[Rfam]
RNA sequence: AGCUUUGUACAGUGGCAGUAUCGUAGCCAAUGAGGUUUAUCCAAGGCAUGAUUAUUGCUAAUUGAAAAUUUUCCCCAAUACCCCACCAUGAGGGCUUGCAAUAUAGUCAGCACUGGCAAUUUUUGACAGUCCCUACAGGGA
Numbered sequence: 001a002g003c004u005u006u007g008u009a010c011a012g013u014g015g016c017a018g019u020a021u022c023g024u025a026g027c028c029a030a031u032g033a034g035g036u037u038u039a040u041c042c043a044a045g046g047c048a049u050g051a052u053u054a055u056u057g058c059u060a061a062u063u064g065a066a067a068a069u070u071u072u073c074c075c076c077a078a079u080a081c082c083c084c085a086c087c088a089u090g091a092g093g094g095c096u097u098g099c100a101a102u103a104u105a106g107u108c109a110g111c112a113c114u115g116g117c118a119a120u121u122u123u124u125g126a127c128a129g130u131c132c133c134u135a136c137a138g139g140g141a
Stems, first nucleotide, its partner, number of pairs: 020052005026047003034042002086116002089112002093108004130141004
The family of this 141-nucleotide RNA from Prolemur simus is "U4 spliceosomal RNA".
Rfam classes the family as a spliceosomal small nuclear RNA.
A search with the family's covariance model found it, with a score of 106 bits.
About the family: U4 small nuclear RNA (U4 snRNA) is a component of the major U2-dependent spliceosome.
Lineage of the source: Eukaryota > Opisthokonta > Metazoa > Eumetazoa > Prolemur.
A reference for the family is Zwieb (1997), "The uRNA database", Nucleic Acids Res.